The record is a 111-nucleotide sequence from Cytobacillus solani, which matches "epsC RNA" in Rfam.
RNA sequence: UGGUGAUGUCUCCUUACCGUUAUCAAUGGAGGCACUCGGCUAUAUUGUGGGUUGAAAUAACCUUAGACGCGAGUCGUCAAUAGUAUGGUGUGAGGACGGGUUAGAUGCCCA
Numbered sequence: 001u002g003g004u005g006a007u008g009u010c011u012c013c014u015u016a017c018c019g020u021u022a023u024c025a026a027u028g029g030a031g032g033c034a035c036u037c038g039g040c041u042a043u044a045u046u047g048u049g050g051g052u053u054g055a056a057a058u059a060a061c062c063u064u065a066g067a068c069g070c071g072a073g074u075c076g077u078c079a080a081u082a083g084u085a086u087g088g089u090g091u092g093a094g095g096a097c098g099g100g101u102u103a104g105a106u107g108c109c110c111a
Stems, first nucleotide, its partner, number of pairs: 001019004007034007035094004039089008049063005066078004098110004
By type it is a cis-regulatory element.